The record is a 148-nucleotide sequence from Paramesorhizobium leguminum, which matches "Alphaproteobacterial sRNA ar9" in Rfam. The pairing is the family consensus, mapped onto this sequence. It is annotated as a small RNA. For this family Rfam cites "A survey of sRNA families in alpha-proteobacteria" (del Val et al., RNA Biol, 2012). Taxonomically the source falls in Paramesorhizobium (Bacteria, Pseudomonadati, Hyphomicrobiales, Phyllobacteriaceae).
RNA sequence: AUAAAGAGAGAGCAGUUAUAUAAUUGCUUUCCUACGCGGUCAAAGUCUUGGGAGGAUGCGAUCUCGGCGCGAUUAUCCGCAGCCGCCGACUAUACGGAAUGAGAUCGGACGCGUAUUGAAUUGCAAGGCGCAAGCCUUGCUUUUUUUU
Numbered sequence: 001a002u003a004a005a006g007a008g009a010g011a012g013c014a015g016u017u018a019u020a021u022a023a024u025u026g027c028u029u030u031c032c033u034a035c036g037c038g039g040u041c042a043a044a045g046u047c048u049u050g051g052g053a054g055g056a057u058g059c060g061a062u063c064u065c066g067g068c069g070c071g072a073u074u075a076u077c078c079g080c081a082g083c084c085g086c087c088g089a090c091u092a093u094a095c096g097g098a099a100u101g102a103g104a105u106c107g108g109a110c111g112c113g114u115a116u117u118g119a120a121u122u123g124c125a126a127g128g129c130g131c132a133a134g135c136c137u138u139g140c141u142u143u144u145u146u147u148u
Stems, first nucleotide, its partner, number of pairs: 003148004011028006035113004045057004060106005066084003069080003086097003123140007
Dot-bracket structure: ..((((....((((((......))))))......((((......((((.....))))..(((((.((((((......))).))).(((......)))....)))))...)))).........(((((((....)))))))....))))